Background:
A member of the RNA family "mir-8834 microRNA precursor family" from Vulpes vulpes, 104 nucleotides long. NCBI's taxonomy places the organism under Eukaryota, Craniata, Euteleostomi, Theria, Vulpes. Gene Ontology terms of the family: miRNA-mediated post-transcriptional gene silencing and RISC complex. The family's consensus secondary structure was predicted with RNAalifold.
[Rfam]
RNA sequence: AGGAGGAACAAUCCCAGUGGCGGCGGCAGCUCUGGAGCCCUGGAGUCAGCUCCCGCAGUAACUCCGGGGCUCUGGUCUGCAGGGCCUGGAGGCUCUGUUAGCAC
Numbered sequence: 001a002g003g004a005g006g007a008a009c010a011a012u013c014c015c016a017g018u019g020g021c022g023g024c025g026g027c028a029g030c031u032c033u034g035g036a037g038c039c040c041u042g043g044a045g046u047c048a049g050c051u052c053c054c055g056c057a058g059u060a061a062c063u064c065c066g067g068g069g070c071u072c073u074g075g076u077c078u079g080c081a082g083g084g085c086c087u088g089g090a091g092g093c094u095c096u097g098u099u100a101g102c103a104c
Stems, first nucleotide, its partner, number of pairs: 002096004009088002012084003019077003023073001025072001028071009040058003